[Rfam]
RNA sequence: UAGCAGCAUGAAAGGGGGCCGUUACACUGUAAGAGAUAGAUAGCAGGUCUCACAGUGAACCGGUCUCUUUCCCUGCUGUUUU
Numbered sequence: 001u002a003g004c005a006g007c008a009u010g011a012a013a014g015g016g017g018g019c020c021g022u023u024a025c026a027c028u029g030u031a032a033g034a035g036a037u038a039g040a041u042a043g044c045a046g047g048u049c050u051c052a053c054a055g056u057g058a059a060c061c062g063g064u065c066u067c068u069u070u071c072c073c074u075g076c077u078g079u080u081u082u
Stems, first nucleotide, its partner, number of pairs: 006076003010072001015067007025057006033051003
The record is an 82-nucleotide sequence from Acipenser ruthenus, which matches "mir-128 microRNA precursor family" in Rfam. Rfam 15.1 lists 1,337 matches to the family in 643 species. For this family Rfam cites "The developmental miRNA profiles of zebrafish as determined by small RNA cloning" (Chen et al., Genes Dev, 2005). The source organism's lineage runs through Eukaryota, Vertebrata, Actinopterygii, Acipenseridae and Acipenser. A search with the family's covariance model found it, with a score of 81 bits.